The family of this 86-nucleotide RNA from Daucus carota is "mir-160 microRNA precursor family". Its family is annotated with RISC complex and miRNA-mediated post-transcriptional gene silencing in the Gene Ontology. The source organism's lineage runs through Eukaryota, Streptophyta, Embryophyta, Gunneridae and Daucus carota. The family's consensus secondary structure was predicted with PFOLD. Rfam 15.1 lists 1,502 matches to the family in 247 species. On this family, see Rhoades et al., Cell 2002: "Prediction of plant microRNA targets".
[Rfam]
RNA sequence: AUAUGCCUGGCUCCCUGUAUGCCGCACGUAGUAUCAGUCUCUUGCAGACUGCCUUCUCCGGGUGGCAUGCCGGGAGUUGAGCAUAU
Numbered sequence: 001a002u003a004u005g006c007c008u009g010g011c012u013c014c015c016u017g018u019a020u021g022c023c024g025c026a027c028g029u030a031g032u033a034u035c036a037g038u039c040u041c042u043u044g045c046a047g048a049c050u051g052c053c054u055u056c057u058c059c060g061g062g063u064g065g066c067a068u069g070c071c072g073g074g075a076g077u078u079g080a081g082c083a084u085a086u
Stems, first nucleotide, its partner, number of pairs: 001086006008079007017070008027060002